[Rfam]
RNA sequence: ACAUGAAUGAUGAAAAAAUCAGACGGAUUCCCAAUGAGAUUUCGAUCCGUGAUCACUACCAGCUACUUCUGACGUGU
Numbered sequence: 001a002c003a004u005g006a007a008u009g010a011u012g013a014a015a016a017a018a019u020c021a022g023a024c025g026g027a028u029u030c031c032c033a034a035u036g037a038g039a040u041u042u043c044g045a046u047c048c049g050u051g052a053u054c055a056c057u058a059c060c061a062g063c064u065a066c067u068u069c070u071g072a073c074g075u076g077u
Stems, first nucleotide, its partner, number of pairs: 001077005
Small nucleolar RNA R12: a 77-nucleotide RNA sequence from Salvia splendens. Its family is annotated with RNA processing and nucleolus in the Gene Ontology. For this family Rfam cites "The high diversity of snoRNAs in plants: identification and comparative study of 120 snoRNA genes from Oryza sativa" (Chen et al., Nucleic Acids Res, 2003). snoR12 is a C/D box small nucleolar RNA, which acts as a methylation guide for 25S ribosomal RNA in plants. snoR12 has been alternatively named snoZ44 in Arabidopsis and snoZ131 in rice. The family has 9 seed sequences and 992 matches in Rfam 15.1. Pairs were carried over by alignment from the consensus structure, which was predicted with PFOLD. The family's RNA type in Rfam is C/D-box small nucleolar RNA.